[Rfam]
RNA sequence: CCAAAGGCUCUUUUCAGAGCCACCCACUUUCUCUUUUAAAAGAGCG
Dot-bracket structure: .....((((((....)))))).........................
Numbered sequence: 001c002c003a004a005a006g007g008c009u010c011u012u013u014u015c016a017g018a019g020c021c022a023c024c025c026a027c028u029u030u031c032u033c034u035u036u037u038a039a040a041a042g043a044g045c046g
Stems, first nucleotide, its partner, number of pairs: 006021006

Description
Shown here is a 46-nucleotide RNA sequence from Sinocyclocheilus anshuiensis, a member of the family "Histone 3' UTR stem-loop". The organism belongs to Sinocyclocheilus, within Eukaryota. The family's RNA type in Rfam is cis-regulatory element.